Shown here is an 89-nucleotide sequence from Georgenia muralis, a member of the family "Glycine riboswitch aptamer". It scores 46 bits against the family's covariance model. About the family: This family represents the bacterial glycine riboswitch.

[Rfam]
Nucleotides: 089
Base pairs, nucleotide, nucleotide: 001089002088003087004086005085012034013033014032015031036077037076038075039073040072043071044070045069049064050063051062052061
Number, partner (000 for none) and nucleotide at each position: 001089c002088u003087c004086u005085g006000g007000a008000g009000a010000g011000c012034a013033g014032c015031g016000c017000g018000g019000c020000c021000g022000g023000c024000c025000g026000g027000g028000c029000g030000g031015c032014g033013c034012u035000c036077a037076c038075c039073g040072a041000c042000g043071g044070g045069g046000c047000a048000a049064c050063c051062g052061g053000g054000c055000c056000g057000c058000g059000g060000c061052c062051c063050g064049g065000a066000a067000a068000u069045c070044u071043c072040u073039c074000a075038g076037g077036u078000c079000a080000c081000g082000u083000g084000a085005c086004a087003g088002a089001g